[Rfam]
RNA sequence: UCCUUUCUAAAUUUGUCCCAAUGAAAACAUUAUUUACAAAUAACUGGUGGUGGAAUAUCGAACAACAAAACGUUGGUUCGUAAGACCUCUAUGCAGUUAUAUGUAGAAAAGGCUUGUC
Numbered sequence: 001u002c003c004u005u006u007c008u009a010a011a012u013u014u015g016u017c018c019c020a021a022u023g024a025a026a027a028c029a030u031u032a033u034u035u036a037c038a039a040a041u042a043a044c045u046g047g048u049g050g051u052g053g054a055a056u057a058u059c060g061a062a063c064a065a066c067a068a069a070a071c072g073u074u075g076g077u078u079c080g081u082a083a084g085a086c087c088u089c090u091a092u093g094c095a096g097u098u099a100u101a102u103g104u105a106g107a108a109a110a111g112g113c114u115u116g117u118c
Base pairs, nucleotide, nucleotide: 036104037103038102040100041099042098043097044096045095046094049090050089052087056082057081058080064074065073066072
This 118-nucleotide RNA from Empedobacter falsenii belongs to the Rfam family "Bacteroidete tryptophan peptide leader RNA". The family's consensus secondary structure is taken from published work. Lineage of the source: Bacteria > Pseudomonadati > Flavobacteriia > Flavobacteriales > Empedobacter. By type it is a cis-regulatory leader. Gene Ontology terms of the family: regulation of gene expression and S-adenosylmethionine metabolic process. It scores 60 bits against the family's covariance model.